[Rfam]
RNA: MIR162_1 microRNA precursor family
RNA sequence: GGUUGAGACGCUGGAGGCAGCGGAUAAUCGAUCUAUUCCUGUAACCCAAAGAAUUAAUUAGCUUAACAGGAUUUGAUCGAUAAUCCUCUGCAUCCAGCGUCUCCCCU
Numbered sequence: 001g002g003u004u005g006a007g008a009c010g011c012u013g014g015a016g017g018c019a020g021c022g023g024a025u026a027a028u029c030g031a032u033c034u035a036u037u038c039c040u041g042u043a044a045c046c047c048a049a050a051g052a053a054u055u056a057a058u059u060a061g062c063u064u065a066a067c068a069g070g071a072u073u074u075g076a077u078c079g080a081u082a083a084u085c086c087u088c089u090g091c092a093u094c095c096a097g098c099g100u101c102u103c104c105c106c107u
Stems, first nucleotide, its partner, number of pairs: 013095003018090003022086004027081007037071002